[Rfam]
RNA sequence: GGAAAAGGAGCUUCUACUAAGAACGCCCACGUCGUGUGGGCAACGUAGAAGCCACCGCAUCCUGCGGA
Dot-bracket structure: ..........(((((((........(((((.....)))))....)))))))...((((.....)))).
Numbered sequence: 001g002g003a004a005a006a007g008g009a010g011c012u013u014c015u016a017c018u019a020a021g022a023a024c025g026c027c028c029a030c031g032u033c034g035u036g037u038g039g040g041c042a043a044c045g046u047a048g049a050a051g052c053c054a055c056c057g058c059a060u061c062c063u064g065c066g067g068a
Stems, first nucleotide, its partner, number of pairs: 011051007026040005055067004
Rfam assigns this 68-nucleotide RNA from Oceanobacillus oncorhynchi to the family "Bacillaceae-1 RNA". Lineage of the source: Bacteria > Bacillati > Caryophanales > Bacillaceae > Oceanobacillus. It scores 64 bits against the family's covariance model.